[Rfam]
RNA sequence: AACUUUGCGCUUGUGGUAAUGACACAGGCAAUGGGGUCUUAGCCGAGUCGCAUCUAUUGCUGGUUAAAAACUUUUUCCAAACCACCUCAAAGGCCUGGCCUCGCACCUGGCCUUAGAGAGUUUCUGGAAGGGGAGCCCUACU
Numbered sequence: 001a002a003c004u005u006u007g008c009g010c011u012u013g014u015g016g017u018a019a020u021g022a023c024a025c026a027g028g029c030a031a032u033g034g035g036g037u038c039u040u041a042g043c044c045g046a047g048u049c050g051c052a053u054c055u056a057u058u059g060c061u062g063g064u065u066a067a068a069a070a071c072u073u074u075u076u077c078c079a080a081a082c083c084a085c086c087u088c089a090a091a092g093g094c095c096u097g098g099c100c101u102c103g104c105a106c107c108u109g110g111c112c113u114u115a116g117a118g119a120g121u122u123u124c125u126g127g128a129a130g131g132g133g134a135g136c137c138c139u140a141c142u
Stems, first nucleotide, its partner, number of pairs: 021054002025050001027049003035044003086118003090114006097107002131142002134139001
Dot-bracket structure: ....................((..(.(((.....(((....)))..))))..))...............................(((.((((((.((.......)).)))))).)))............((.(....).))
Shown here is a 142-nucleotide RNA from Dendrobium catenatum, a member of the family "U4 spliceosomal RNA". The match comes from Rfam's covariance-model search (74 bits). Rfam 15.1 lists 32,178 matches to the family in 2,547 species. Clan: U4 clan. NCBI's taxonomy places the organism under Eukaryota, Streptophyta, Petrosaviidae, Dendrobiinae, Dendrobium. The family's RNA type in Rfam is spliceosomal small nuclear RNA.